[Rfam]
RNA: MIR2617 microRNA precursor family
Nucleotides: 088
Base pairs, nucleotide, nucleotide: 002088003087004086005085006084007081008080009079010078011077012076013075014074016073017072018071019070020069021068
Number, partner (000 for none) and nucleotide at each position: 001000a002088u003087g004086u005085a006084g007081u008080g009079u010078a011077g012076c013075a014074u015000g016073c017072c018071c019070g020069u021068u022000u023000g024000g025000u026000g027000a028000a029000u030000u031000u032000c033000u034000c035000u036000g037000a038000u039000g040000a041000a042000u043000a044000u045000u046000u047000u048000a049000u050000a051000u052000u053000u054000a055000a056000a057000u058000g059000a060000u061000u062000u063000u064000g065000g066000g067000u068021a069020a070019c071018g072017g073016g074014g075013u076012g077011u078010u079009a080008c081007a082000g083000a084006u085005u086004g087003u088002g